[Rfam]
The family of this 86-nucleotide RNA sequence from Castanea mollissima is "mir-160 microRNA precursor family". Rfam links the family to the GO terms miRNA-mediated post-transcriptional gene silencing and RISC complex. On this family, see Rhoades et al., Cell 2002: "Prediction of plant microRNA targets".

RNA sequence: UCAUGUCUGGCUUCUCAGACCACAUACCUUGGGUAAAUUAAUACUUCUUAUUACUCAAGGUAUGUGGUCUGAGGAGCCAAACAUGA
Number, nucleotide and partner (000 for none) at each position: 001u086002c085003a084004u083005g082006u081007c000008u079009g078010g077011c076012u075013u074014c073015u000016c071017a070018g069019a068020c067021c066022a065023c064024a063025u000026a000027c060028c059029u058030u000031g000032g000033g000034u000035a000036a000037a000038u000039u000040a000041a000042u000043a000044c000045u000046u000047c000048u000049u000050a000051u000052u000053a000054c000055u000056c000057a000058a029059g028060g027061u000062a000063u024064g023065u022066g021067g020068u019069c018070u017071g016072a000073g014074g013075a012076g011077c010078c009079a008080a000081a006082c005083a004084u003085g002086a001